RNA sequence: CGCGUUUUUCGCCCAGGCGGAGCUCGACCGCCGGCUCAAGUCCUGAAGGACUUCAUCGACCAGCAUCGCGCUACGUUCGGGGUCGAGCCGCUCUGCAAGGUCUUGCAGGUCGCCCCG
Number, nucleotide and partner (000 for none) at each position: 001c000002g000003c000004g000005u000006u000007u000008u000009u000010c000011g000012c000013c000014c000015a000016g032017g031018c030019g029020g028021a000022g000023c000024u000025c000026g000027a000028c020029c019030g018031c017032c016033g000034g000035c000036u000037c000038a000039a000040g000041u000042c000043c000044u000045g000046a000047a000048g000049g000050a000051c000052u000053u000054c000055a000056u000057c000058g000059a000060c000061c000062a000063g000064c000065a000066u000067c000068g000069c000070g000071c000072u000073a000074c000075g000076u000077u000078c117079g116080g115081g114082g113083u000084c000085g000086a000087g000088c000089c112090g111091c000092u109093c108094u107095g106096c105097a104098a103099g000100g000101u000102c000103u098104u097105g096106c095107a094108g093109g092110u000111c090112g089113c082114c081115c080116c079117g078
RNA: ALIL pseudoknot
Organism: Paracidovorax anthurii